[Rfam]
RNA sequence: UCCACUGCGAGGUGGAAUCUGAAGGAAGCCGGCGGCAAAGUCCCGAUCCGAGGAACACGAACAUCAUACAAGGCUCAAGCCACAGGACGAGUUUGCAAAGCAAAACGAAAUCCAAAAGCUACCCGGAUGUGGCAGAGUAAAUGGUGCGGAUACACGGGAUGAAAGUUUGAUAGU
Numbered sequence: 001u002c003c004a005c006u007g008c009g010a011g012g013u014g015g016a017a018u019c020u021g022a023a024g025g026a027a028g029c030c031g032g033c034g035g036c037a038a039a040g041u042c043c044c045g046a047u048c049c050g051a052g053g054a055a056c057a058c059g060a061a062c063a064u065c066a067u068a069c070a071a072g073g074c075u076c077a078a079g080c081c082a083c084a085g086g087a088c089g090a091g092u093u094u095g096c097a098a099a100g101c102a103a104a105a106c107g108a109a110a111u112c113c114a115a116a117a118g119c120u121a122c123c124c125g126g127a128u129g130u131g132g133c134a135g136a137g138u139a140a141a142u143g144g145u146g147c148g149g150a151u152a153c154a155c156g157g158g159a160u161g162a163a164a165g166u167u168u169g170a171u172a173g174u
Stems, first nucleotide, its partner, number of pairs: 001016006028174002031171001035166002040160006046151005062146006073138003079133006085113003091106004
Dot-bracket structure: ((((((....))))))...........((.(...((...(((((((((((...........((((((.....(((...(((((((((...((((........))))....)))..............))))))..)))..)))))))))))...))))))....))....).))

The family of this 174-nucleotide sequence from Proteiniphilum saccharofermentans is "Group II catalytic intron D1-D4-3". NCBI's taxonomy places the organism under Bacteria, Pseudomonadati, Bacteroidia, Bacteroidales, Proteiniphilum. The pairing is the family consensus, mapped onto this sequence. The match comes from Rfam's covariance-model search (146 bits).